[Rfam]
RNA: MIR8024 microRNA precursor family
Organism: Solanum tuberosum
RNA sequence: UUUUAAGAUUUAAAGAUUUCAACUUACAUACUUGGCUGAUUUGAGACCCUAAUUUGCAGACUUGAAGAAUUUGAAGAUUUGAAAU
Numbered sequence: 001u002u003u004u005a006a007g008a009u010u011u012a013a014a015g016a017u018u019u020c021a022a023c024u025u026a027c028a029u030a031c032u033u034g035g036c037u038g039a040u041u042u043g044a045g046a047c048c049c050u051a052a053u054u055u056g057c058a059g060a061c062u063u064g065a066a067g068a069a070u071u072u073g074a075a076g077a078u079u080u081g082a083a084a085u
Base pairs, nucleotide, nucleotide: 001083002082003081005079006078009075010074011073012072013071014070017067018066019065020064021063025058027056028055032052033051034050035049